[Rfam]
RNA sequence: UAAGGUACGUGCGACUGGCGGAUAAGUGGAGUAAUACCACGGGGAGCACGAUACAAUAAAAGCCGGCCGCCUGGGCACCCUAA
Numbered sequence: 001u002a003a004g005g006u007a008c009g010u011g012c013g014a015c016u017g018g019c020g021g022a023u024a025a026g027u028g029g030a031g032u033a034a035u036a037c038c039a040c041g042g043g044g045a046g047c048a049c050g051a052u053a054c055a056a057u058a059a060a061a062g063c064c065g066g067c068c069g070c071c072u073g074g075g076c077a078c079c080c081u082a083a
Stems, first nucleotide, its partner, number of pairs: 004054001008050005015043002017071005026040004062076003
RNA: ZMP/ZTP riboswitch aptamer (pfl RNA motif)
Organism: Lacrimispora saccharolytica